[Rfam]
The family of this 105-nucleotide sequence from Martelella endophytica is "EcpR1".
RNA sequence: AUACCCCAUGAUGCUCAGGUCCGCCGCAUCUCCUGGAGUCGUGGGGUCGGCCGGCCGAUGACCCAAAGGGAUUCCUCGUGUCCCGGGAAAUCGGUCGGCCGGUCU
Number, nucleotide and partner (000 for none) at each position: 001a000002u000003a047004c046005c045006c044007c043008a042009u041010g040011a000012u000013g000014c000015u036016c035017a034018g033019g032020u000021c000022c000023g000024c000025c000026g000027c000028a000029u000030c000031u000032c019033c018034u017035g016036g015037a000038g000039u000040c010041g009042u008043g007044g006045g005046g004047u003048c000049g100050g099051c098052c097053g096054g095055c094056c093057g092058a091059u090060g000061a000062c000063c000064c000065a000066a000067a000068g000069g000070g000071a000072u000073u000074c000075c000076u000077c000078g000079u000080g000081u000082c000083c000084c000085g000086g000087g000088a000089a000090a059091u058092c057093g056094g055095u054096c053097g052098g051099c050100c049101g000102g000103u000104c000105u000

Notes:
Perviously named SmelC291, SmrC10, or Sra33. A search with the family's covariance model found it, with a score of 80 bits.